[Rfam]
FMN riboswitch aptamer (RFN element): a 181-nucleotide sequence from Paenibacillus sp. KS1. It scores 108 bits against the family's covariance model. Rfam's curators write: The RFN element is a highly conserved domain that is found frequently in the 5'-untranslated regions of prokaryotic mRNAs that encode for flavin mononucleotide (FMN) biosynthesis and transport proteins.
RNA sequence: AUGGAUCUUCAGGGCAGGGUGAAAUUCCUGACCGGCGGUAUGGGUGCAGCUGCGCCCGAGCCCGCGACUCGCUGUUCGCUUACUCGGUUACUUGUAACAUGUAAGCAUAGAACGGAUGAACAGCGACUGACUUGGUGAGAAGCCAAGGCCGACGGUAUAGUCCGGAUGGAAGAAGAUCUCG
Numbered sequence: 001a002u003g004g005a006u007c008u009u010c011a012g013g014g015c016a017g018g019g020u021g022a023a024a025u026u027c028c029u030g031a032c033c034g035g036c037g038g039u040a041u042g043g044g045u046g047c048a049g050c051u052g053c054g055c056c057c058g059a060g061c062c063c064g065c066g067a068c069u070c071g072c073u074g075u076u077c078g079c080u081u082a083c084u085c086g087g088u089u090a091c092u093u094g095u096a097a098c099a100u101g102u103a104a105g106c107a108u109a110g111a112a113c114g115g116a117u118g119a120a121c122a123g124c125g126a127c128u129g130a131c132u133u134g135g136u137g138a139g140a141a142g143c144c145a146a147g148g149c150c151g152a153c154g155g156u157a158u159a160g161u162c163c164g165g166a167u168g169g170a171a172g173a174a175g176a177u178c179u180c181g
Stems, first nucleotide, its partner, number of pairs: 003179008017029003031161002033151002035065004060149002069126010131147005153164003